Overview
The family of this 178-nucleotide sequence from Cavia porcellus is "Small Cajal body specific RNA 16". scaRNAs are a specific class of small nuclear RNAs which localise to the Cajal bodies and guide the modification of RNA polymerase II transcribed spliceosomal RNAs U1, U2, U4, U5 and U12. ACA47 belongs to the H/ACA box class of guide RNAs as it has the predicted hairpin-hinge-hairpin-tail structure, the conserved H/ACA-box motifs and is found associated with GAR1. ACA47 is predicted to guide the pseudouridylation of residue U5 of the U1 spliceosomal snRNA. It is annotated as a small Cajal body RNA. A reference for the family is Darzacq et al. (2002), "Cajal body-specific small nuclear RNAs: a novel class of 2'-O-methylation and pseudouridylation guide RNAs", EMBO J. Its family is annotated with RNA processing and nucleolus in the Gene Ontology. The organism belongs to Cavia, within Eukaryota.
[Rfam]
RNA sequence: GUGGUCUGGGAAAGGCUCCUGUGUGACGAACCCCGCCUGGGGGGGUGCAGCUUCGGACCAGGCAGCCCCACCCUGACCUAAAGUAAAUUCCCAGGGGGAGUUUUCCCUGGGUUUUGCAGUAACAGGUAUGAACACUCUAGCAGCAGUUUGAUGAUCAUGUAUGAUACUGCAAACAGGA
Numbered sequence: 001g002u003g004g005u006c007u008g009g010g011a012a013a014g015g016c017u018c019c020u021g022u023g024u025g026a027c028g029a030a031c032c033c034c035g036c037c038u039g040g041g042g043g044g045g046u047g048c049a050g051c052u053u054c055g056g057a058c059c060a061g062g063c064a065g066c067c068c069c070a071c072c073c074u075g076a077c078c079u080a081a082a083g084u085a086a087a088u089u090c091c092c093a094g095g096g097g098g099a100g101u102u103u104u105c106c107c108u109g110g111g112u113u114u115u116g117c118a119g120u121a122a123c124a125g126g127u128a129u130g131a132a133c134a135c136u137c138u139a140g141c142a143g144c145a146g147u148u149u150g151a152u153g154a155u156c157a158u159g160u161a162u163g164a165u166a167c168u169g170c171a172a173a174c175a176g177g178a
Stems, first nucleotide, its partner, number of pairs: 003078004008073003014067004018062004023058002025052001027050001028048001030046003090111003094106004113173009123163002129157003133153002136150001139148003